[Rfam]
RNA sequence: UUAAGGGUAGAAAAAGAGCGUUAAGUGUCCAAAAUAACGAAUGAAGUUUUGGAACGAAAAAUGAAAAUUUGCGAUUCUUUUUCGCAUUCACACAU
Numbered sequence: 001u002u003a004a005g006g007g008u009a010g011a012a013a014a015a016g017a018g019c020g021u022u023a024a025g026u027g028u029c030c031a032a033a034a035u036a037a038c039g040a041a042u043g044a045a046g047u048u049u050u051g052g053a054a055c056g057a058a059a060a061a062u063g064a065a066a067a068u069u070u071g072c073g074a075u076u077c078u079u080u081u082u083c084g085c086a087u088u089c090a091c092a093c094a095u
Stems, first nucleotide, its partner, number of pairs: 002094001005091001010083009019073003025055002028053008039089005059070004

Shown here is a 95-nucleotide sequence from Catellicoccus marimammalium, a member of the family "THF (Tetrahydrofolate) riboswitch aptamer". Tetrahydrofolate (THF) riboswitch was first reported for Ames et al. as an RNA motif in 5' untranslated (5'-UTR)regions of folate transport and biosynthesis genes in Firmicutes genomes. On this family, see Ames et al., Chem Biol 2010: "A eubacterial riboswitch class that senses the coenzyme tetrahydrofolate". A search with the family's covariance model found it, with a score of 58 bits.